[Rfam]
Shown here is a 77-nucleotide sequence from Cannabis sativa, a member of the family "small nucleolar RNA snoR117".
It is annotated as a C/D-box small nucleolar RNA.
RNA sequence: GGCCUAUGAUUUUCACAAAUUUGUCCGUACCAUCUGAAUCUUCUGAUGUAUUCAUCUUACAAAUCUCUCUGAGGCCU
Numbered sequence: 001g002g003c004c005u006a007u008g009a010u011u012u013u014c015a016c017a018a019a020u021u022u023g024u025c026c027g028u029a030c031c032a033u034c035u036g037a038a039u040c041u042u043c044u045g046a047u048g049u050a051u052u053c054a055u056c057u058u059a060c061a062a063a064u065c066u067c068u069c070u071g072a073g074g075c076c077u
Base pairs, nucleotide, nucleotide: 001076002075003074004073
Its family is annotated with RNA processing and nucleolus in the Gene Ontology. The organism belongs to Cannabis, within Eukaryota. The match comes from Rfam's covariance-model search (49 bits). The base pairs follow the family's consensus structure, which was predicted with RNAalifold.